Source information: Shown here is a 143-nucleotide RNA from Rhizobium sp. LC145, a member of the family "Alphaproteobacterial sRNA ar7". It scores 105 bits against the family's covariance model.
[Rfam]
RNA sequence: UACCGGCAUUGAUCACGCCGCAGUCUGGUAGUUGGCCAGUCCCCCGCCGCGCCAGACCGGGCAAAGACCUAUCCCCCUCUCCGGGUCUUUGCCCCUUCAUCGGAACCGCCAUGGCUGUCCCCUCCCGGCCAUGGCGGUUUUCC
Numbered sequence: 001u002a003c004c005g006g007c008a009u010u011g012a013u014c015a016c017g018c019c020g021c022a023g024u025c026u027g028g029u030a031g032u033u034g035g036c037c038a039g040u041c042c043c044c045c046g047c048c049g050c051g052c053c054a055g056a057c058c059g060g061g062c063a064a065a066g067a068c069c070u071a072u073c074c075c076c077c078u079c080u081c082c083g084g085g086u087c088u089u090u091g092c093c094c095c096u097u098c099a100u101c102g103g104a105a106c107c108g109c110c111a112u113g114g115c116u117g118u119c120c121c122c123u124c125c126c127g128g129c130c131a132u133g134g135c136g137g138u139u140u141u142c143c
Base pairs, nucleotide, nucleotide: 024056025055026054027053028052029051034048035047036046059094060093061092062091063090064089065088066087067086068085069084103139106137107136108135109134110133111132112131113130114129115128116127117126
Dot-bracket structure: .......................((((((....(((.........)))..))))))..(((((((((((..............)))))))))))........(..((((((((((((........)))))))))))).)....
The pairing is the family consensus, mapped onto this sequence.
Rfam classes the family as a small RNA.
For this family Rfam cites "A survey of sRNA families in alpha-proteobacteria" (del Val et al., RNA Biol, 2012).